[Rfam]
RNA sequence: AUGUACCACGCGUCCACUGCGGUUGUGAGCGCGCCGUCCGCGCCCACCUGACCGCUGCGCGCUCCGUUUUGUCAGCC
Numbered sequence: 001a002u003g004u005a006c007c008a009c010g011c012g013u014c015c016a017c018u019g020c021g022g023u024u025g026u027g028a029g030c031g032c033g034c035c036g037u038c039c040g041c042g043c044c045c046a047c048c049u050g051a052c053c054g055c056u057g058c059g060c061g062c063u064c065c066g067u068u069u070u071g072u073c074a075g076c077c
Stems, first nucleotide, its partner, number of pairs: 002016002005013002020036004048075005054069001
RNA: Xanthomonas sRNA sX9
Organism: Xanthomonas oryzae